[Rfam]
RNA sequence: CCGCCCCCGGCGAAAAGGUUGCCACGUGAGGUGACCUUCUCAAGCAAGACUUGAGAUAGCCGAGGGUGUUUUA
Numbered sequence: 001c002c003g004c005c006c007c008c009g010g011c012g013a014a015a016a017g018g019u020u021g022c023c024a025c026g027u028g029a030g031g032u033g034a035c036c037u038u039c040u041c042a043a044g045c046a047a048g049a050c051u052u053g054a055g056a057u058a059g060c061c062g063a064g065g066g067u068g069u070u071u072u073a
Stems, first nucleotide, its partner, number of pairs: 002068005008062004017036007038056005
RNA: DUF3800-IX RNA